RNA sequence: GGUCGGUGAUGUAACCUGGCAUGUAUUAUCUGACUACAAAGUUGAAGAUAUACUUAUUGAUCUGAGACCUA
Numbered sequence: 001g002g003u004c005g006g007u008g009a010u011g012u013a014a015c016c017u018g019g020c021a022u023g024u025a026u027u028a029u030c031u032g033a034c035u036a037c038a039a040a041g042u043u044g045a046a047g048a049u050a051u052a053c054u055u056a057u058u059g060a061u062c063u064g065a066g067a068c069c070u071a
Stems, first nucleotide, its partner, number of pairs: 001069004
This 71-nucleotide RNA from Podarcis muralis belongs to the Rfam family "Small nucleolar RNA SNORD45". The literature on the family includes a 2002 paper in Mol Cell Biol by Galardi et al., "Purified box C/D snoRNPs are able to reproduce site-specific 2'-O-methylation of target RNA in vitro". By type it is a C/D-box small nucleolar RNA. Taxonomically the source falls in Podarcis (Eukaryota, Sarcopterygii, Amniota, Squamata).